[Rfam]
RNA sequence: GGGGUAUUAGCUUAGCUGGUAGAGCAGUUGACUCUUAAUCAUCAGGUCGUAGGUUCGAGUCCUACAUACCCCA
Numbered sequence: 001g002g003g004g005u006a007u008u009a010g011c012u013u014a015g016c017u018g019g020u021a022g023a024g025c026a027g028u029u030g031a032c033u034c035u036u037a038a039u040c041a042u043c044a045g046g047u048c049g050u051a052g053g054u055u056c057g058a059g060u061c062c063u064a065c066a067u068a069c070c071c072c073a
Stems, first nucleotide, its partner, number of pairs: 001072007010025004027043001029041003049065005
Rfam assigns this 73-nucleotide RNA sequence from Bacillus sp. FJAT-27916 to the family "tRNA". The organism belongs to Bacillus, within Bacteria. From the family's description: Transfer RNA (tRNA) molecules are approximately 80 nucleotides in length. Their secondary structure includes four short double-helical elements and three loops (D, anti-codon, and T loops). It is annotated as a transfer RNA. The family's consensus secondary structure is taken from published work. The match comes from Rfam's covariance-model search (71 bits). Its family is annotated with triplet codon-amino acid adaptor activity in the Gene Ontology.